Rfam assigns this 146-nucleotide RNA from Camphora micrantha to the family "Small nucleolar RNA snoR2/U65". A reference for the family is Shaw et al. (1998), "Localization and processing from a polycistronic precursor of novel snoRNAs in maize", J Cell Sci. The source organism's lineage runs through Eukaryota, Streptophytina, Euphyllophyta, Magnoliopsida and Camphora. Pairs were carried over by alignment from the consensus structure, which was predicted with WAR. Gene Ontology terms of the family: RNA processing and nucleolus. It scores 65 bits against the family's covariance model. The family is grouped with related families in Rfam's "SNORA65 clan".
[Rfam]
RNA sequence: CGCCGGAUGCCACAAAGCGGCUAUGAAAUUGCAGUGACCACCAAUGCUAUGAUUGGGUGUAGAGAAAUAAUGUUUUGCAUAUUGAUUGGAACCUGUGAAAUUAUUCUAUUAGUUUAUUCAAAGAGCCGAUUUGUGCGAUUAUAUUG
Dot-bracket structure: .(((.((((...((..(.((...((....))......)).)...))...).))).)))................(((((........((...((..(((.................)))..))..))......)))))........